Rfam assigns this 135-nucleotide RNA sequence from Sphaeramia orbicularis to the family "Small nucleolar RNA SNORA13". About the family: ACA13 is a member of the H/ACA class of snoRNA that guide the sites of modification of uridines to pseudouridines. It scores 83 bits against the family's covariance model. Rfam classes the family as an H/ACA-box small nucleolar RNA. The organism belongs to Sphaeramia, within Eukaryota.
RNA sequence: UGCCUUUAUGUGUUGCCCAUUCAUUGCUUUUCACAGUGAAUGUGGUGUCAACGAAGGCAUACAAUAACUCUUGGAUCGGCCUUAGCAGGGCUCCUCUCCGGUGACCUUGUCCUAAGUUCUAUCCCAAGUACACUC
Numbered sequence: 001u002g003c004c005u006u007u008a009u010g011u012g013u014u015g016c017c018c019a020u021u022c023a024u025u026g027c028u029u030u031u032c033a034c035a036g037u038g039a040a041u042g043u044g045g046u047g048u049c050a051a052c053g054a055a056g057g058c059a060u061a062c063a064a065u066a067a068c069u070c071u072u073g074g075a076u077c078g079g080c081c082u083u084a085g086c087a088g089g090g091c092u093c094c095u096c097u098c099c100g101g102u103g104a105c106c107u108u109g110u111c112c113u114a115a116g117u118u119c120u121a122u123c124c125c126a127a128g129u130a131c132a133c134u135c
Stems, first nucleotide, its partner, number of pairs: 002058006011050002014047004018042008070128004074123003078119002084117001088113002090110002095104001